[Rfam]
Small Cajal body specific RNA 1: a 161-nucleotide RNA sequence from Lepisosteus oculatus.
From the family's description: scaRNAs are a specific class of small nuclear RNAs which localise to the Cajal bodies and guide the modification of RNA polymerase II transcribed spliceosomal RNAs U1, U2, U4, U5 and U12.
For this family Rfam cites "Cajal body-specific small nuclear RNAs: a novel class of 2'-O-methylation and pseudouridylation guide RNAs" (Darzacq et al., EMBO J, 2002).
By type it is a small Cajal body RNA.
The match comes from Rfam's covariance-model search (108 bits).
Its family is annotated with Cajal body, nucleolus and RNA processing in the Gene Ontology.
The family has 29 seed sequences and 715 matches in Rfam 15.1.
The base pairs follow the family's consensus structure, which was predicted with RNAalifold.
Taxonomically the source falls in Lepisosteus (Eukaryota, Opisthokonta, Eumetazoa, Euteleostomi).
RNA sequence: GAGCACCUGAUACUAGCCGGGCUGUCUGCACCCCAGUGUCUUCUGUGUCUGGGCUGUGCUUUGUGAUUGCCAGGUUCCAAAGGUGCAAGACAAAAAGCAGCCCUGAGAUUUAAGCUCCGAGUGCAGAGAAACACUCUGUGUUAUAACUCAGAGGCACAUGC
Numbered sequence: 001g002a003g004c005a006c007c008u009g010a011u012a013c014u015a016g017c018c019g020g021g022c023u024g025u026c027u028g029c030a031c032c033c034c035a036g037u038g039u040c041u042u043c044u045g046u047g048u049c050u051g052g053g054c055u056g057u058g059c060u061u062u063g064u065g066a067u068u069g070c071c072a073g074g075u076u077c078c079a080a081a082g083g084u085g086c087a088a089g090a091c092a093a094a095a096a097g098c099a100g101c102c103c104u105g106a107g108a109u110u111u112a113a114g115c116u117c118c119g120a121g122u123g124c125a126g127a128g129a130a131a132c133a134c135u136c137u138g139u140g141u142u143a144u145a146a147c148u149c150a151g152a153g154g155c156a157c158a159u160g161c
Stems, first nucleotide, its partner, number of pairs: 003086006015076004020071003024067003028059004033053001036050001038048002100155003119134001121132002135152004140147002